c-di-AMP riboswitch aptamer (ydaO/yuaA leader): a 143-nucleotide RNA sequence from Nonomuraea aridisoli.
RNA sequence: GCCGGUGCAUCGCCUAAUCCCGGGCGCGUCGCCCGGGAGCCGGGGACCCAAUCCGCACUGGGGUGAAUCCACUUCGGUGGUAGGGACGCGCCUCCCAUGCCCGAACCCGUCAGCUAACCCGGCCGGCAAGAGGGAGAGGAACA
Numbered sequence: 001g002c003c004g005g006u007g008c009a010u011c012g013c014c015u016a017a018u019c020c021c022g023g024g025c026g027c028g029u030c031g032c033c034c035g036g037g038a039g040c041c042g043g044g045g046a047c048c049c050a051a052u053c054c055g056c057a058c059u060g061g062g063g064u065g066a067a068u069c070c071a072c073u074u075c076g077g078u079g080g081u082a083g084g085g086a087c088g089c090g091c092c093u094c095c096c097a098u099g100c101c102c103g104a105a106c107c108c109g110u111c112a113g114c115u116a117a118c119c120c121g122g123c124c125g126g127c128a129a130g131a132g133g134g135a136g137a138g139g140a141a142c143a
Base pairs, nucleotide, nucleotide: 012127013126014125018038019037020036021035022034023033024032025031026030039123040122041121042120043119044118049060050059061108062107063106069080070079071078072077083102084101085100
Notes:
Taxonomically the source falls in Nonomuraea (Bacteria, Bacillati, Actinomycetes, Streptosporangiaceae).